[Rfam]
RNA sequence: CCCCCGGCAUCGUGCGGAUGUGCGACGGAGUCCACGGUGCCGGGUACCACCUGACGACCUCCAUCGCACCGCUGGCCUUCCGGCCAUGCGGCUCAACCUCGGGAGAGAACGCUGAGCGUUACAAC
Numbered sequence: 001c002c003c004c005c006g007g008c009a010u011c012g013u014g015c016g017g018a019u020g021u022g023c024g025a026c027g028g029a030g031u032c033c034a035c036g037g038u039g040c041c042g043g044g045u046a047c048c049a050c051c052u053g054a055c056g057a058c059c060u061c062c063a064u065c066g067c068a069c070c071g072c073u074g075g076c077c078u079u080c081c082g083g084c085c086a087u088g089c090g091g092c093u094c095a096a097c098c099u100c101g102g103g104a105g106a107g108a109a110c111g112c113u114g115a116g117c118g119u120u121a122c123a124a125c
Stems, first nucleotide, its partner, number of pairs: 003044010069091004073086005

Shown here is a 125-nucleotide RNA sequence from Corynebacterium variabile, a member of the family "atpB RNA". By type it is a cis-regulatory element. Taxonomically the source falls in Corynebacterium variabile (Bacteria, Actinomycetota, Actinomycetes, Corynebacteriaceae).